[Rfam]
RNA sequence: GGCCGGACGCCGCCGAGUCGUGUCCGCGCACCGCGGACGUGAGCCGGGGACCCACCGCAGUCCUGGGGUGAAUCCUGCUCCCGAGCAGGUAGGGCACCUUCCCGCCCGAACCCGUCAGCUAACUCGGUAGGCGGCCAUGGAAGGAACG
Number, nucleotide and partner (000 for none) at each position: 001g000002g000003c000004c000005g000006g000007a000008c000009g000010c000011c133012g132013c131014c130015g000016a000017g000018u042019c041020g040021u039022g038023u037024c036025c035026g034027c033028g032029c000030a000031c000032c028033g027034c026035g025036g024037a023038c022039g021040u020041g019042a018043g128044c127045c126046g125047g124048g123049g000050a000051c000052c000053c065054a064055c000056c000057g000058c000059a000060g000061u000062c000063c000064u054065g053066g113067g112068g111069u000070g000071a000072a000073u000074c089075c088076u087077g086078c000079u000080c000081c000082c000083g000084a000085g000086c077087a076088g075089g074090u000091a000092g107093g106094g105095c104096a000097c000098c000099u000100u000101c000102c000103c000104g095105c094106c093107c092108g000109a000110a000111c068112c067113c066114g000115u000116c000117a000118g000119c000120u000121a000122a000123c048124u047125c046126g045127g044128u043129a000130g014131g013132c012133g011134g000135c000136c000137a000138u000139g000140g000141a000142a000143g000144g000145a000146a000147c000148g000

Rfam assigns this 148-nucleotide RNA from Geodermatophilus sabuli to the family "c-di-AMP riboswitch aptamer (ydaO/yuaA leader)". The family has 106 seed sequences and 7,607 matches in Rfam 15.1. Gene Ontology terms of the family: regulation of gene expression and cyclic-di-AMP binding. The source organism's lineage runs through Bacteria, Bacillati, Actinomycetota, Actinomycetes and Geodermatophilus.